RNA sequence: UAAAUAUUGGGGCAAAGCACGUGAAAACGUGUGACGCAAAACUAGAGGGCCUGUAAGAUGGCAGCCAGUUGCAUUU
Numbered sequence: 001u002a003a004a005u006a007u008u009g010g011g012g013c014a015a016a017g018c019a020c021g022u023g024a025a026a027a028c029g030u031g032u033g034a035c036g037c038a039a040a041a042c043u044a045g046a047g048g049g050c051c052u053g054u055a056a057g058a059u060g061g062c063a064g065c066c067a068g069u070u071g072c073a074u075u076u
Base pairs, nucleotide, nucleotide: 012037013036017032018031019030020029021028022027040070041069042068043067047066048065049062050061051060
A member of the RNA family "c-di-GMP-I riboswitch aptamer" from Enterocloster bolteae, 76 nucleotides long.
The family's consensus secondary structure is taken from published work.